Notes
This 92-nucleotide RNA from Diceros bicornis belongs to the Rfam family "Small nucleolar SNORD12/SNORD106". The literature on the family includes a 2001 paper in EMBO J by Huttenhofer et al., "RNomics: an experimental approach that identifies 201 candidates for novel, small, non-messenger RNAs in mouse". Its family is annotated with nucleolus and RNA processing in the Gene Ontology. The source organism's lineage runs through Eukaryota, Metazoa, Deuterostomia, Vertebrata and Diceros bicornis.
[Rfam]
RNA sequence: GCCAGUGCAGCUGAUGAUGUAACUUUUUUCCCCAUCAGAUCGACCCUGUUGAUCUAACUGAAUUAUUAGCCAGUUUUGUCUGAUGCGUUGGC
Numbered sequence: 001g002c003c004a005g006u007g008c009a010g011c012u013g014a015u016g017a018u019g020u021a022a023c024u025u026u027u028u029u030c031c032c033c034a035u036c037a038g039a040u041c042g043a044c045c046c047u048g049u050u051g052a053u054c055u056a057a058c059u060g061a062a063u064u065a066u067u068a069g070c071c072a073g074u075u076u077u078g079u080c081u082g083a084u085g086c087g088u089u090g091g092c
Stems, first nucleotide, its partner, number of pairs: 001092009